[Rfam]
Nucleotides: 046
Stems, first nucleotide, its partner, number of pairs: 002019001004017005033045005
Number, partner (000 for none) and nucleotide at each position: 001000g002019c003000u004017u005016g006015g007014g008013c009000u010000c011000a012000c013008g014007c015006c016005c017004a018000u019002g020000g021000c022000u023000a024000c025000a026000u027000c028000a029000u030000g031000c032000c033045g034044c035043c036042g037041c038000u039000u040000c041037g042036c043035g044034g045033c046000u
Description: Rfam assigns this 46-nucleotide RNA from Allorhodopirellula solitaria to the family "Acido-Lenti-1 RNA". By type it is a small RNA. Taxonomically the source falls in Allorhodopirellula (Bacteria, Planctomycetota, Planctomycetia, Pirellulales).